A member of the RNA family "Eukaryotic large subunit ribosomal RNA" from Oreochromis niloticus, 314 nucleotides of a longer RNA. Rfam links the family to the GO terms ribosome and structural constituent of ribosome. It scores 2912 bits against the family's covariance model.
RNA sequence: GAGUCUAACGCGCGCGCGAGUCAAAGGGUCUCACGAAACCCCGAGGCGCAAUGAAAGUGAGGGCUGGCCCCGCCAGCUGAGGUGGGAUCCCGGGCCCCCGCGGCCCGGGCGCACCACCGGCCCGUCUCGCCCGCUCCGUCGGGGAGGUGGAGCUUGAGCGCGUGCGAUAGGACCCGAAAGAUGGUGAACUAUGCCUGGGCAGGGCGAAGCCAGAGGAAACUCUGGUGGAGGCCCGUAGCGGUCCUGACGUGCAAAUCGGUCGUCCGACCUGGGUAUAGGGGCGAAAGACUAAUCGAACCAUCUAGUAGCUGGUU
Number, nucleotide and partner (000 for none) at each position: 001g000002a000003g000004u000005c170006u169007a168008a000009c166010g165011c164012g163013c162014g161015c160016g159017c158018g000019a000020g047021u046022c045023a000024a000025a000026g041027g040028g039029u038030c000031u000032c000033a000034c000035g000036a000037a000038a029039c028040c027041c026042c000043g000044a000045g022046g021047c020048g000049c000050a000051a058052u057053g000054a000055a000056a000057g052058u051059g000060a000061g000062g000063g000064c000065u000066g000067g000068c000069c000070c000071c000072g000073c000074c000075a000076g000077c000078u000079g000080a000081g118082g117083u116084g115085g114086g000087a000088u000089c109090c108091c107092g106093g105094g104095c000096c000097c000098c000099c000100g000101c000102g000103g000104c094105c093106c092107g091108g090109g089110c000111g000112c000113a000114c085115c084116a083117c082118c081119g000120g153121c152122c150123c149124g148125u147126c146127u145128c000129g000130c000131c141132c000133g000134c000135u000136c000137c000138g000139u000140c000141g131142g000143g000144g000145a127146g126147g125148u124149g123150g122151a000152g121153c120154u000155u000156g000157a000158g017159c016160g015161c014162g013163u012164g011165c010166g009167a000168u007169a006170g005171g000172a000173c312174c311175c000176g309177a000178a000179a000180g302181a301182u300183g299184g298185u297186g000187a000188a000189c278190u277191a276192u275193g274194c273195c272196u271197g270198g269199g268200c266201a000202g234203g233204g232205c231206g000207a000208a000209g226210c225211c224212a223213g222214a221215g220216g000217a000218a000219a000220c215221u214222c213223u212224g211225g210226u209227g000228g000229a000230g000231g205232c204233c203234c202235g000236u000237a000238g263239c262240g261241g260242u000243c259244c258245u000246g257247a256248c000249g000250u000251g000252c000253a000254a000255a000256u247257c246258g244259g243260u241261c240262g239263u238264c000265c000266g200267a000268c199269c198270u197271g196272g195273g194274u193275a192276u191277a190278g189279g000280g290281g289282c000283g000284a000285a000286a000287g000288a000289c281290u280291a000292a000293u000294c000295g000296a000297a185298c184299c183300a182301u181302c180303u000304a000305g000306u000307a000308g000309c176310u000311g174312g173313u000314u000